[Rfam]
RNA sequence: AUGGAUGGACAAAACUGGUUUUCUCAAUGAUCCUCCAGAUGGAUUUGAAAUCUGAGAUCAUUGUGAAAGCUGAUUUUGUUGU
Numbered sequence: 001a002u003g004g005a006u007g008g009a010c011a012a013a014a015c016u017g018g019u020u021u022u023c024u025c026a027a028u029g030a031u032c033c034u035c036c037a038g039a040u041g042g043a044u045u046u047g048a049a050a051u052c053u054g055a056g057a058u059c060a061u062u063g064u065g066a067a068a069g070c071u072g073a074u075u076u077u078g079u080u081g082u
Stems, first nucleotide, its partner, number of pairs: 009079006016072008025063001028060005
bantam microRNA precursor family: an 82-nucleotide sequence from Stegodyphus mimosarum.
The base pairs follow the family's consensus structure, which was predicted with RNAalifold.
The match comes from Rfam's covariance-model search (71 bits).
The literature on the family includes a 2007 paper in Genome Biol by Weaver et al., "Computational and transcriptional evidence for microRNAs in the honey bee genome".
The family is grouped with related families in Rfam's "mir-81 clan".